RNA: Small nucleolar RNA Z112
RNA sequence: AUCCAAGUGAGGAUUCUUAGACCAUAUGAAGUGUCGUAUGACAAUGUAAACAAUAACCGCUUCUCUCCACUGCAAGUGUCCACCUUCGGCCAUAACCUUUGUGGUUUGGUUUGGGCUAAAAUCUCCUUUUGCACCUGGUUUUGUUCAGCUGUGUGCAUGACUUUAACCGGUUCUCUGAGCGGU
Number, nucleotide and partner (000 for none) at each position: 001a183002u182003c181004c000005a000006a000007g000008u000009g000010a000011g000012g000013a000014u000015u000016c000017u000018u000019a000020g000021a000022c000023c000024a000025u000026a000027u000028g000029a000030a000031g000032u000033g000034u000035c000036g000037u000038a000039u000040g000041a000042c000043a000044a000045u000046g000047u000048a000049a000050a000051c000052a000053a000054u000055a000056a000057c000058c000059g000060c000061u000062u000063c000064u000065c000066u000067c000068c000069a000070c000071u133072g132073c131074a130075a129076g128077u000078g126079u120080c000081c000082a117083c115084c114085u000086u000087c000088g111089g110090c109091c108092a107093u000094a106095a105096c104097c103098u000099u000100u000101g000102u000103g097104g096105u095106u094107u092108g091109g090110u089111u088112u000113g000114g084115g083116c000117u082118a000119a000120a079121a000122u000123c000124u000125c000126c078127u000128u076129u075130u074131g073132c072133a071134c000135c000136u000137g000138g000139u000140u000141u000142u000143g000144u000145u000146c000147a000148g000149c000150u000151g000152u000153g000154u000155g000156c000157a000158u000159g000160a000161c000162u000163u000164u000165a000166a000167c000168c000169g000170g000171u000172u000173c000174u000175c000176u000177g000178a000179g000180c000181g003182g002183u001